[Rfam]
Lysine riboswitch aptamer: a 185-nucleotide RNA sequence from Lihuaxuella thermophila.
RNA sequence: AUGUGAAGUAGAGGCGCGGAGGUUCAAGAGUACUUGUUCCGAGGGACGGGACCGAUGAGGAGCAGGGAAAGGGGACAUCCGCCGAAGUCCGGAUUGGAUCCCGUAUUCAACCGGGCUGGGGCCGUACCCGAACAGGGACGGCACUGUCACAGAAGCCACUGCUUUUGUGAAGAGCUAUCUCACAG
Numbered sequence: 001a002u003g004u005g006a007a008g009u010a011g012a013g014g015c016g017c018g019g020a021g022g023u024u025c026a027a028g029a030g031u032a033c034u035u036g037u038u039c040c041g042a043g044g045g046a047c048g049g050g051a052c053c054g055a056u057g058a059g060g061a062g063c064a065g066g067g068a069a070a071g072g073g074g075a076c077a078u079c080c081g082c083c084g085a086a087g088u089c090c091g092g093a094u095u096g097g098a099u100c101c102c103g104u105a106u107u108c109a110a111c112c113g114g115g116c117u118g119g120g121g122c123c124g125u126a127c128c129c130g131a132a133c134a135g136g137g138a139c140g141g142c143a144c145u146g147u148c149a150c151a152g153a154a155g156c157c158a159c160u161g162c163u164u165u166u167g168u169g170a171a172g173a174g175c176u177a178u179c180u181c182a183c184a185g
Base pairs, nucleotide, nucleotide: 006180008178009177010176011175016082017081018080019079020078021076023075024074025073033066034065035064036063037062038061039060040059086117087116088115089114090113091112092111094110095109096108097107098106118145119144121142122141123140124139125138127136128135147170148169149168150167151166152165153164